This 105-nucleotide RNA sequence from Hufsiella arboris belongs to the Rfam family "SAM riboswitch aptamer (S box leader)". The base pairs follow the family's consensus structure, which is taken from published work. Its family is annotated with regulation of gene expression in the Gene Ontology. The family is grouped with related families in Rfam's "SAM clan". Lineage of the source: Bacteria > Pseudomonadati > Sphingobacteriia > Sphingobacteriales > Hufsiella.

RNA sequence: UGCUUAUUGAGAAAGACGGAGGGAAUAGACCCUGCGAAGUCUUAGCAACCUGUGCUAACAAGGUGCUACGUUCUAUCCCGGCUGAACAUCGGGAAAAGAUAAGUU
Number, nucleotide and partner (000 for none) at each position: 001u000002g104003c103004u102005u101006a100007u099008u098009g000010a000011g000012a000013a043014a042015g041016a040017c039018g000019g000020a000021g032022g031023g030024a000025a000026u075027a074028g073029a072030c023031c022032c021033u000034g000035c000036g000037a000038a000039g017040u016041c015042u014043u013044a067045g066046c065047a064048a000049c063050c062051u060052g059053u058054g000055c000056u000057a000058a053059c052060a051061a000062g050063g049064u047065g046066c045067u044068a000069c000070g000071u097072u029073c028074u027075a026076u094077c093078c092079c091080g090081g089082c000083u000084g000085a000086a000087c000088a000089u081090c080091g079092g078093g077094a076095a000096a000097a071098g008099a007100u006101a005102a004103g003104u002105u000